[Rfam]
RNA: Group II catalytic intron D1-D4-3
RNA sequence: UCCAUUUUGAGGUGGAGUAUGAAGUAAUCCUAAGGCAAUCCCUUGGUCUGACAAACAAAAAUCACAUAUAGGGCAUAUGCAGAGCAGACAAACUUGCGUCACAAAGCAAAGUCCAAUCCUGCUCAACCCUGCGGUGUAAGUGUGACAGAUAUAUGAGCGAUAGGUUACUGUU
Numbered sequence: 001u002c003c004a005u006u007u008u009g010a011g012g013u014g015g016a017g018u019a020u021g022a023a024g025u026a027a028u029c030c031u032a033a034g035g036c037a038a039u040c041c042c043u044u045g046g047u048c049u050g051a052c053a054a055a056c057a058a059a060a061a062u063c064a065c066a067u068a069u070a071g072g073g074c075a076u077a078u079g080c081a082g083a084g085c086a087g088a089c090a091a092a093c094u095u096g097c098g099u100c101a102c103a104a105a106g107c108a109a110a111g112u113c114c115a116a117u118c119c120u121g122c123u124c125a126a127c128c129c130u131g132c133g134g135u136g137u138a139a140g141u142g143u144g145a146c147a148g149a150u151a152u153a154u155g156a157g158c159g160a161u162a163g164g165u166u167a168c169u170g171u172u
Stems, first nucleotide, its partner, number of pairs: 001016006030170001035165002040159001042157004046150005062145006073137003078133005084127001087113003093106003